Nucleotides: 068
Base pairs, nucleotide, nucleotide: 004065007062008061009060010059011058012057014055015054016053017052018050019049020048021047022046023045025043026042027041
Number, partner (000 for none) and nucleotide at each position: 001000g002000u003000g004065g005000g006000c007062c008061u009060c010059a011058a012057a013000u014055g015054u016053g017052g018050a019049g020048c021047a022046c023045u024000a025043u026042u027041c028000c029000c030000g031000g032000u033000g034000u035000c036000c037000a038000g039000g040000u041027g042026g043025a044000a045023a046022g047021u048020g049019c050018u051000g052017c053016c054015a055014u056000a057012u058011u059010u060009g061008a062007g063000u064000g065004u066000c067000a068000c

Shown here is a 68-nucleotide RNA from Saimiri boliviensis, a member of the family "mir-290 microRNA precursor family". Clan: mir-290 clan. A reference for the family is Houbaviy et al. (2003), "Embryonic stem cell-specific MicroRNAs", Dev Cell. Gene Ontology terms of the family: miRNA-mediated post-transcriptional gene silencing and RISC complex.